Description
This 87-nucleotide sequence from Mikania micrantha belongs to the Rfam family "Small nucleolar RNA R11/Z151". The match comes from Rfam's covariance-model search (79 bits). By type it is a C/D-box small nucleolar RNA. The family has 5 seed sequences and 802 matches in Rfam 15.1. The family's consensus secondary structure was predicted with PFOLD.
[Rfam]
RNA sequence: GAGCUUAUGGUGAUAAACUUAAUUAUCUUAGCAGAUUUCAUUGAUAUAUUCAUAUCAAUGAUCUGAUUGUUACACACACUGAAGCUC
Numbered sequence: 001g002a003g004c005u006u007a008u009g010g011u012g013a014u015a016a017a018c019u020u021a022a023u024u025a026u027c028u029u030a031g032c033a034g035a036u037u038u039c040a041u042u043g044a045u046a047u048a049u050u051c052a053u054a055u056c057a058a059u060g061a062u063c064u065g066a067u068u069g070u071u072a073c074a075c076a077c078a079c080u081g082a083a084g085c086u087c
Stems, first nucleotide, its partner, number of pairs: 001087005